[Rfam]
RNA sequence: UGAGAUUACGAUGAUGAUAUUCAGCUCCCUCUUCUGAUUGAAGUUUGAGGUAAUUAGCUGGCAGAAUCGAACCAAUAAAUCUAUAGCCAACACUGAGUAA
Numbered sequence: 001u002g003a004g005a006u007u008a009c010g011a012u013g014a015u016g017a018u019a020u021u022c023a024g025c026u027c028c029c030u031c032u033u034c035u036g037a038u039u040g041a042a043g044u045u046u047g048a049g050g051u052a053a054u055u056a057g058c059u060g061g062c063a064g065a066a067u068c069g070a071a072c073c074a075a076u077a078a079a080u081c082u083a084u085a086g087c088c089a090a091c092a093c094u095g096a097g098u099a100a
Stems, first nucleotide, its partner, number of pairs: 006100004
Shown here is a 100-nucleotide sequence from Turnera subulata, a member of the family "Small nucleolar RNA R30/Z108".
From the family's description: snoR30 is a C/D box small nucleolar RNA which acts as a methylation guide for 18S ribosomal RNA in plants.
The base pairs follow the family's consensus structure, which was predicted with PFOLD.
It scores 85 bits against the family's covariance model.
Rfam classes the family as a C/D-box small nucleolar RNA.
The organism belongs to Turnera, within Eukaryota.